[Rfam]
RNA sequence: CCAGAGGGUCGGGCGGCCGCGGGUGUCUUCGGACACGCGAGGAAAGUCCGGGCUCCACGGAAACGACGGUGGCGGGUAACGCCCGCCGGGGGUGACCCCAGGGACAGUGCAACAGAGAGCAGACGUCCGGGUUUCGGCCCGGUCAUGGUGAAAGGGUGCGGUAAGAGCGCACCGCGCGACCGGUAACGGAAGCGGCACGGUAAACCCCACCGGGAGCAAGACCGAAUAGGGACGGCACAUGGGCCUCGUUCCGGCCCGUCGUCCGGGUUGGUUGCUGGAGGCGGCGCGCAAGCGUCGUCCUAGAGGAAUGGUCGCCUAUCCGCGUUCGCGCGGUGGACAGAACCCGGCUUACAGACCCUCUGGCGCU
Numbered sequence: 001c002c003a004g005a006g007g008g009u010c011g012g013g014c015g016g017c018c019g020c021g022g023g024u025g026u027c028u029u030c031g032g033a034c035a036c037g038c039g040a041g042g043a044a045a046g047u048c049c050g051g052g053c054u055c056c057a058c059g060g061a062a063a064c065g066a067c068g069g070u071g072g073c074g075g076g077u078a079a080c081g082c083c084c085g086c087c088g089g090g091g092g093u094g095a096c097c098c099c100a101g102g103g104a105c106a107g108u109g110c111a112a113c114a115g116a117g118a119g120c121a122g123a124c125g126u127c128c129g130g131g132u133u134u135c136g137g138c139c140c141g142g143u144c145a146u147g148g149u150g151a152a153a154g155g156g157u158g159c160g161g162u163a164a165g166a167g168c169g170c171a172c173c174g175c176g177c178g179a180c181c182g183g184u185a186a187c188g189g190a191a192g193c194g195g196c197a198c199g200g201u202a203a204a205c206c207c208c209a210c211c212g213g214g215a216g217c218a219a220g221a222c223c224g225a226a227u228a229g230g231g232a233c234g235g236c237a238c239a240u241g242g243g244c245c246u247c248g249u250u251c252c253g254g255c256c257c258g259u260c261g262u263c264c265g266g267g268u269u270g271g272u273u274g275c276u277g278g279a280g281g282c283g284g285c286g287c288g289c290a291a292g293c294g295u296c297g298u299c300c301u302a303g304a305g306g307a308a309u310g311g312u313c314g315c316c317u318a319u320c321c322g323c324g325u326u327c328g329c330g331c332g333g334u335g336g337a338c339a340g341a342a343c344c345c346g347g348c349u350u351a352c353a354g355a356c357c358c359u360c361u362g363g364c365g366c367u
Stems, first nucleotide, its partner, number of pairs: 001363010011352001012316007020039002023036005044350003048347005053216004062250004067212005072086005087101001088099004102207002107205002109201002124147002127142006155173006174196001175194003180189003220273004230264006241257005280299008
RNA: Bacterial RNase P class A
Organism: Sphingomonas sp. Leaf33